[Rfam]
The family of this 149-nucleotide RNA sequence from Ureibacillus manganicus is "c-di-AMP riboswitch aptamer (ydaO/yuaA leader)". This family represents a conserved RNA structure found upstream of the ydaO and yuaA genes in Bacillus subtilis and related genes in other bacteria. The ydaO/yuaA element is thought to act as a genetic 'off' switch for the ydaO and yuaA genes in its native state. It is believed that the element may be triggered during osmotic shock leading to activation of ydaO, a predicted amino acid transporter gene, and members of the yuaA-yubG operon which code for KtrA and KtrB K+ transporters. It scores 64 bits against the family's covariance model. Lineage of the source: Bacteria > Bacillota > Bacilli > Ureibacillus > Ureibacillus manganicus. On this family, see Barrick et al., Proc Natl Acad Sci U S A 2004: "New RNA motifs suggest an expanded scope for riboswitches in bacterial genetic control". Rfam links the family to the GO terms regulation of gene expression and cyclic-di-AMP binding.
RNA sequence: ACAUUUUUUUCGCUUAAUCUAUUUUUAGAACGGGGGACCCAAUUUUUUUACGGUAUUUUCCGUUAUAGGUGAGUUCUGAAAAGAAGGGGCUUUUCGUUUCCAAAGUCCUAACCUGAAAGCUAACCUCGUAAGCGUUUAGAGGAAACAGU
Numbered sequence: 001a002c003a004u005u006u007u008u009u010u011c012g013c014u015u016a017a018u019c020u021a022u023u024u025u026u027a028g029a030a031c032g033g034g035g036g037a038c039c040c041a042a043u044u045u046u047u048u049u050a051c052g053g054u055a056u057u058u059u060c061c062g063u064u065a066u067a068g069g070u071g072a073g074u075u076c077u078g079a080a081a082a083g084a085a086g087g088g089g090c091u092u093u094u095c096g097u098u099u100c101c102a103a104a105g106u107c108c109u110a111a112c113c114u115g116a117a118a119g120c121u122a123a124c125c126u127c128g129u130a131a132g133c134g135u136u137u138a139g140a141g142g143a144a145a146c147a148g149u
Base pairs, nucleotide, nucleotide: 011134012133013132014131018029019028020027030129031128032127033126034125035124067114068113069112075084076083077082087108088107089106090105091104092103